Shown here is a 147-nucleotide RNA sequence from Pectobacterium atrosepticum, a member of the family "Leucine operon leader". For this family Rfam cites "Attenuation in amino acid biosynthetic operons" (Kolter and Yanofsky, Annu Rev Genet, 1982). Its family is annotated with leucine biosynthetic process in the Gene Ontology. Rfam's curators write: At least 6 amino acid operons are known to be regulated by attenuation. In each a leader sequence of 150-200 bp is found upstream of the first gene in the operon. Rfam classes the family as a cis-regulatory leader. It is one of the family's seed sequences. The base pairs follow the family's consensus structure, which is taken from published work.
RNA sequence: CGAGACACGACACUAUGUUCAAGUUUACUGUCCUACUAAGCCUACUACUAAACGCAUCCUUCUUGCGCGGUAGGUUUGUGGGCAGACUUCAGAACUAAGUUUCUCGCCACACGAUACAAAAACCCGCGCUGAUGCGCGGGUUUUUUU
Numbered sequence: 001c002g003a004g005a006c007a008c009g010a011c012a013c014u015a016u017g018u019u020c021a022a023g024u025u026u027a028c029u030g031u032c033c034u035a036c037u038a039a040g041c042c043u044a045c046u047a048c049u050a051a052a053c054g055c056a057u058c059c060u061u062c063u064u065g066c067g068c069g070g071u072a073g074g075u076u077u078g079u080g081g082g083c084a085g086a087c088u089u090c091a092g093a094a095c096u097a098a099g100u101u102u103c104u105c106g107c108c109a110c111a112c113g114a115u116a117c118a119a120a121a122a123c124c125c126g127c128g129c130u131g132a133u134g135c136g137c138g139g140g141u142u143u144u145u146u147u
Stems, first nucleotide, its partner, number of pairs: 004108001006106001009103002012100003017095002028085006045073005053067004119144011